The record is a 100-nucleotide RNA from Lepisosteus oculatus, which matches "Vault RNA" in Rfam. This family of RNAs are found as part of the enigmatic vault ribonucleoprotein complex. The match comes from Rfam's covariance-model search (60 bits). It is annotated as a non-coding RNA gene. The organism belongs to Lepisosteus, within Eukaryota.
RNA sequence: GCACUGGGUUAGCUCAAUGGUUACUUCAAACUUUGCAAGUUUCUCAUUCCGCGGCCGCAAGGUUGCUGGGUUCGGACCAUGGGCGCUGUCCAGUGUUUUU
Numbered sequence: 001g002c003a004c005u006g007g008g009u010u011a012g013c014u015c016a017a018u019g020g021u022u023a024c025u026u027c028a029a030a031c032u033u034u035g036c037a038a039g040u041u042u043c044u045c046a047u048u049c050c051g052c053g054g055c056c057g058c059a060a061g062g063u064u065g066c067u068g069g070g071u072u073c074g075g076a077c078c079a080u081g082g083g084c085g086c087u088g089u090c091c092a093g094u095g096u097u098u099u100u
Stems, first nucleotide, its partner, number of pairs: 002095006012084004017080004025076003029072003